[Rfam]
RNA sequence: AACCCCCGCAAGGCCGACGGCAUCCCGCCGCCGCUGGUGAAAGUCCAGCCGCCGGAGAAAUCCGGCGGGCGCUCAUGGGGGAAUC
Numbered sequence: 001a002a003c004c005c006c007c008g009c010a011a012g013g014c015c016g017a018c019g020g021c022a023u024c025c026c027g028c029c030g031c032c033g034c035u036g037g038u039g040a041a042a043g044u045c046c047a048g049c050c051g052c053c054g055g056a057g058a059a060a061u062c063c064g065g066c067g068g069g070c071g072c073u074c075a076u077g078g079g080g081g082a083a084u085c
Stems, first nucleotide, its partner, number of pairs: 004080004013070003018030003033049004050067006
The record is an 85-nucleotide RNA from Colidextribacter sp. OB.20, which matches "Twister_sister_ribozyme" in Rfam. Rfam links the family to the GO term catalytic activity. Taxonomically the source falls in Colidextribacter (Bacteria, Bacillota, Clostridia, Eubacteriales). The base pairs follow the family's consensus structure, which is taken from published work.